[Rfam]
RNA: Plastid-psbA-1 3UTR RNA
RNA sequence: UGUCGAAGCUCCAUCUACAAAUGGAUAAGACUUUGGUCUUAGUAUAAAUGUAGUUGAGUUUUUGAUUGCAAAAUAAAGGAACAAUAACCAAUUUCUUAUUCUAUCAAGAGUGUUGGUUAUUGCUCCUUUAUU
Numbered sequence: 001u002g003u004c005g006a007a008g009c010u011c012c013a014u015c016u017a018c019a020a021a022u023g024g025a026u027a028a029g030a031c032u033u034u035g036g037u038c039u040u041a042g043u044a045u046a047a048a049u050g051u052a053g054u055u056g057a058g059u060u061u062u063u064g065a066u067u068g069c070a071a072a073a074u075a076a077a078g079g080a081a082c083a084a085u086a087a088c089c090a091a092u093u094u095c096u097u098a099u100u101c102u103a104u105c106a107a108g109a110g111u112g113u114u115g116g117u118u119a120u121u122g123c124u125c126c127u128u129u130a131u132u
Stems, first nucleotide, its partner, number of pairs: 010025005075129006082122006089115003093110005